Shown here is an 82-nucleotide RNA sequence from Neodiprion lecontei, a member of the family "mir-263 microRNA precursor family". Lineage of the source: Eukaryota > Bilateria > Pancrustacea > Allotriocarida > Neodiprion. On this family, see Li et al., BMC Genomics 2009: "Direct sequencing and expression analysis of a large number of miRNAs in Aedes aegypti and a multi-species survey of novel mosquito miRNAs".
RNA sequence: UUCCGGCGGGUCUUGGCACUGGAAGAAUUCACAGAUGUGUAUUAUGUAAUCGUGGAUCUUGCAAUGCCAUCACUUGCUGAAA
Numbered sequence: 001u002u003c004c005g006g007c008g009g010g011u012c013u014u015g016g017c018a019c020u021g022g023a024a025g026a027a028u029u030c031a032c033a034g035a036u037g038u039g040u041a042u043u044a045u046g047u048a049a050u051c052g053u054g055g056a057u058c059u060u061g062c063a064a065u066g067c068c069a070u071c072a073c074u075u076g077c078u079g080a081a082a
Base pairs, nucleotide, nucleotide: 004079005078006077007076008075009074010073014069015068016067017066018065020063021062023059025058026057029055030054031053032052034050